MIR6152 microRNA precursor family: a 95-nucleotide RNA from Nicotiana tabacum. Lineage of the source: Eukaryota > Mesangiospermae > Solanales > Solanaceae > Nicotiana.

[Rfam]
RNA sequence: UAGACAGAUUAUCGUAUUCGACUGUAUUCACGGCGUGAAACAAGGGAUUACACUUUUUUAAGCGGAAAGUGAAUCAAUUAACAUAAUAGACUCCU
Numbered sequence: 001u002a003g004a005c006a007g008a009u010u011a012u013c014g015u016a017u018u019c020g021a022c023u024g025u026a027u028u029c030a031c032g033g034c035g036u037g038a039a040a041c042a043a044g045g046g047a048u049u050a051c052a053c054u055u056u057u058u059u060a061a062g063c064g065g066a067a068a069g070u071g072a073a074u075c076a077a078u079u080a081a082c083a084u085a086a087u088a089g090a091c092u093c094c095u
Stems, first nucleotide, its partner, number of pairs: 003093002009089004014084002017081002020079002023076002026074006034064003037057003042054001